[Rfam]
RNA sequence: CCCGUCGAGGGGCGCUGCGACCGUGGGUGCAUGCGGAUCCGUCCGCAACAGCCUGCACAUCGCCAAUGAUGUGCAGACGCUUCACCUGAACGGCCAGGCUCGACGGCAUUCUUCUGGAACGGCGCCCGGUUUGU
Numbered sequence: 001c002c003c004g005u006c007g008a009g010g011g012g013c014g015c016u017g018c019g020a021c022c023g024u025g026g027g028u029g030c031a032u033g034c035g036g037a038u039c040c041g042u043c044c045g046c047a048a049c050a051g052c053c054u055g056c057a058c059a060u061c062g063c064c065a066a067u068g069a070u071g072u073g074c075a076g077a078c079g080c081u082u083c084a085c086c087u088g089a090a091c092g093g094c095c096a097g098g099c100u101c102g103a104c105g106g107c108a109u110u111c112u113u114c115u116g117g118a119a120c121g122g123c124g125c126c127c128g129g130u131u132u133g134u
Stems, first nucleotide, its partner, number of pairs: 002106007021093004
Dot-bracket structure: .(((((((............((((.................................................................))))......)))))))............................